[Rfam]
RNA sequence: AAACAUUCUAAAACAUCCACUCAUAUAAUCGCGGGGAUAUGGCCUGCAAGUUUCUACCGAUUUGCCGUAAACAAAUCGACUAUGAGAAGCAAAGGGAAGAAG
Numbered sequence: 001a002a003a004c005a006u007u008c009u010a011a012a013a014c015a016u017c018c019a020c021u022c023a024u025a026u027a028a029u030c031g032c033g034g035g036g037a038u039a040u041g042g043c044c045u046g047c048a049a050g051u052u053u054c055u056a057c058c059g060a061u062u063u064g065c066c067g068u069a070a071a072c073a074a075a076u077c078g079a080c081u082a083u084g085a086g087a088a089g090c091a092a093a094g095g096g097a098a099g100a101a102g
Stems, first nucleotide, its partner, number of pairs: 020086006029049001031047005058078007

Background: The record is a 102-nucleotide sequence from Sporosarcina sp. Te-1, which matches "Purine riboswitch aptamer" in Rfam. Its family is annotated with purine nucleobase biosynthetic process in the Gene Ontology. Pairs were carried over by alignment from the consensus structure, which is taken from published work. Lineage of the source: Bacteria > Bacillota > Bacilli > Caryophanaceae > Sporosarcina. It scores 83 bits against the family's covariance model. Riboswitches are metabolite binding domains within certain messenger RNAs that serve as precision sensors for their corresponding targets.